Rfam assigns this 115-nucleotide sequence from Sinorhizobium terangae to the family "Alphaproteobacterial ar14". The family's RNA type in Rfam is small RNA. Rfam 15.1 lists 784 matches to the family in 332 species. Smr14C2 was renamed NfeR1 (Nodule Formation Efficiency RNA) highly expressed in salt stress and during the symbiotic interaction on legume roots.
[Rfam]
RNA sequence: AUUGACAGCGCGCAGUACCUCCUCCCGCUGCGCAAGCCAAUCGAUCGGUUCCGCUCCUCCUCCCAAGGGGCCGAUCAAGAGACCCCGACGCCUCCUCCCGGCUCGGGGUCUUUUU
Numbered sequence: 001a002u003u004g005a006c007a008g009c010g011c012g013c014a015g016u017a018c019c020u021c022c023u024c025c026c027g028c029u030g031c032g033c034a035a036g037c038c039a040a041u042c043g044a045u046c047g048g049u050u051c052c053g054c055u056c057c058u059c060c061u062c063c064c065a066a067g068g069g070g071c072c073g074a075u076c077a078a079g080a081g082a083c084c085c086c087g088a089c090g091c092c093u094c095c096u097c098c099c100g101g102c103u104c105g106g107g108g109u110c111u112u113u114u115u
Base pairs, nucleotide, nucleotide: 004038006036010033011032012031013030014029043076044075045074046073047072048071049070050069051068052067081110082109083108084107085106086105087104088103089100